[Rfam]
RNA sequence: UUUGUCCACUCUUCCUAAAGACUUCUGGAUUCUAGACAUUCAAGGUAGAACUAGCUAGCUAGAAGUCUUUGAGGGGGAGUGAACAA
Numbered sequence: 001u002u003u004g005u006c007c008a009c010u011c012u013u014c015c016u017a018a019a020g021a022c023u024u025c026u027g028g029a030u031u032c033u034a035g036a037c038a039u040u041c042a043a044g045g046u047a048g049a050a051c052u053a054g055c056u057a058g059c060u061a062g063a064a065g066u067c068u069u070u071g072a073g074g075g076g077g078a079g080u081g082a083a084c085a086a
Stems, first nucleotide, its partner, number of pairs: 007081009016071013
Description: This 86-nucleotide RNA from Daucus carota belongs to the Rfam family "MIR473 microRNA precursor family". Lineage of the source: Eukaryota > Euphyllophyta > eudicotyledons > Daucus > Daucus carota.